[Rfam]
RNA: Bacterial RNase P class A
Organism: Thioploca ingrica
RNA sequence: GUAGUUGGUUAAGCAGUCGCUGUAUUCGCUUAAAAUACAGAGGAAAGUCCGGGCUUCACAGGACAGGGUGCCAGGUAACACCUGGGAGACGUAAGCCUACGGAAAGUGCCACAGAAAAUAUACCGCCAGUUGCAGUUAUCCGGUUUGAAUCAUUGAUAACGGCUAACUGCAAAAGGUAAGGGUGAAAAGGUGUCGGUAAGAGCGCACCGCAUUGAUGGUAACAUCAAUGGCAAGGUAAACCCCACCUGAAGCAAGACCAAAUAGGGGAAUAGUAGCCGCCGCUAAAGCGACUACCGAUGUGGUCCGCAUUAUUCCCGGGUAGGUUGCUAGAGGUAUUUGGUGACAAAUAUCCCAGAUGAAUGACUGCUACAUUGCUUACUAGAAGUGAUGAACAGAACCCGGCUUAUCGAUCAACUACCUUU
Dot-bracket structure: ((((((((((((((((((.(((((((.......)))))))....[[[.[[[[[((((...[[[[.((((((((((.....)))))(((.(....).)).)((...(((((............(((((..(((((((((.........................)))))))))..)))..)).......((((.((.......))))))(((((((((....)))))))).)..)))..)))))))))))))...((((......((((((.........................(((((.]]]]))))))))))).....))))......((((((((....))))))))..........))))))).............................]]]]]]]].).))))))))))....